[Rfam]
RNA sequence: AGUUACUUCACAGUCGUUCUUCACUGGCUAGCUUUAUGUCUCCCCCCUCCUACUGUAAAGCUGCCAGUUGAAGAGCUGUUGUGGGUGAC
Numbered sequence: 001a002g003u004u005a006c007u008u009c010a011c012a013g014u015c016g017u018u019c020u021u022c023a024c025u026g027g028c029u030a031g032c033u034u035u036a037u038g039u040c041u042c043c044c045c046c047c048u049c050c051u052a053c054u055g056u057a058a059a060g061c062u063g064c065c066a067g068u069u070g071a072a073g074a075g076c077u078g079u080u081g082u083g084g085g086u087g088a089c
Stems, first nucleotide, its partner, number of pairs: 005086003010082003017075006026065003030062009
Shown here is an 89-nucleotide RNA from Anguilla anguilla, a member of the family "mir-22 microRNA precursor family". It scores 82 bits against the family's covariance model. Rfam links the family to the GO terms RISC complex and miRNA-mediated post-transcriptional gene silencing.